[Rfam]
The family of this 132-nucleotide RNA sequence is "Small nucleolar RNA SNORA15". It is annotated as an H/ACA-box small nucleolar RNA. Gene Ontology terms of the family: nucleolus and RNA processing. From the family's description: ACA15 is a member of the H/ACA class of snoRNA that guide the sites of modification of uridines to pseudouridines. The family has 22 seed sequences and 974 matches in Rfam 15.1. For this family Rfam cites "RNomics: an experimental approach that identifies 201 candidates for novel, small, non-messenger RNAs in mouse" (Huttenhofer et al., EMBO J, 2001).
RNA sequence: GCAUGGACGAAUUCUGCUAUAGCUUUCUUCAGUAGCUAUUGCAGUCAGACACUAUGCCAGAUUCAAUUCCCGUUUUACACUCUGGCAUGCUUUUUAUAUGUGAGUGGGCAUGCCCUUGGAAGUGGGAUACAA
Numbered sequence: 001g002c003a004u005g006g007a008c009g010a011a012u013u014c015u016g017c018u019a020u021a022g023c024u025u026u027c028u029u030c031a032g033u034a035g036c037u038a039u040u041g042c043a044g045u046c047a048g049a050c051a052c053u054a055u056g057c058c059a060g061a062u063u064c065a066a067u068u069c070c071c072g073u074u075u076u077a078c079a080c081u082c083u084g085g086c087a088u089g090c091u092u093u094u095u096a097u098a099u100g101u102g103a104g105u106g107g108g109c110a111u112g113c114c115c116u117u118g119g120a121a122g123u124g125g126g127a128u129a130c131a132a
Base pairs, nucleotide, nucleotide: 001057002056003055004054005053006052014044015043016042017041019039070125071124072123073122074121075120076119080118084114085113086112087111088110089109090108091107092106